The record is a 95-nucleotide RNA sequence from Mesoplasma syrphidae, which matches "Purine riboswitch aptamer" in Rfam. Lineage of the source: Bacteria > Bacillati > Mycoplasmatota > Mollicutes > Mesoplasma.
RNA sequence: AACAAUUUAAUAUAAAAAACUUGUAUAAGCCAACAUAAUGGGUUGGUGUCUCUACGUCGUACCAAUACGAAUCUAUAAGACUUAGCACUCGUGGA
Numbered sequence: 001a002a003c004a005a006u007u008u009a010a011u012a013u014a015a016a017a018a019a020c021u022u023g024u025a026u027a028a029g030c031c032a033a034c035a036u037a038a039u040g041g042g043u044u045g046g047u048g049u050c051u052c053u054a055c056g057u058c059g060u061a062c063c064a065a066u067a068c069g070a071a072u073c074u075a076u077a078a079g080a081c082u083u084a085g086c087a088c089u090c091g092u093g094g095a
Base pairs, nucleotide, nucleotide: 020079021078022077023076024075025074030046031045032044033043034042057070058069059068060067061066